[Rfam]
permuted transfer-messenger RNA: a 209-nucleotide RNA from Cereibacter ovatus. By type it is a non-coding RNA gene. Lineage of the source: Bacteria > Pseudomonadota > Alphaproteobacteria > Paracoccaceae > Cereibacter.

RNA sequence: GGGCAUAAACGCGCUCGUCAUAAGCGGAUCGGACCCGGGGGCGGUACCCGGCGGCUCCACCAAAACUCCCUCGUUGGGGGCGGAGGGGGCCGAAACAGGAUCGACGAACGUCUAAAGGGGUUGCUUUGUCCCGGUGAGGUACCACCGUUAUCGGUCCGAAAAGUACAGUUGCCAACGACAACCGUGCUCCGAUGGCUCUGGCUGCGUAA
Numbered sequence: 001g002g003g004c005a006u007a008a009a010c011g012c013g014c015u016c017g018u019c020a021u022a023a024g025c026g027g028a029u030c031g032g033a034c035c036c037g038g039g040g041g042c043g044g045u046a047c048c049c050g051g052c053g054g055c056u057c058c059a060c061c062a063a064a065a066c067u068c069c070c071u072c073g074u075u076g077g078g079g080g081c082g083g084a085g086g087g088g089g090c091c092g093a094a095a096c097a098g099g100a101u102c103g104a105c106g107a108a109c110g111u112c113u114a115a116a117g118g119g120g121u122u123g124c125u126u127u128g129u130c131c132c133g134g135u136g137a138g139g140u141a142c143c144a145c146c147g148u149u150a151u152c153g154g155u156c157c158g159a160a161a162a163g164u165a166c167a168g169u170u171g172c173c174a175a176c177g178a179c180a181a182c183c184g185u186g187c188u189c190c191g192a193u194g195g196c197u198c199u200g201g202c203u204g205c206g207u208a209a
Stems, first nucleotide, its partner, number of pairs: 001131005013121004025110002029107003035051005052092007132147004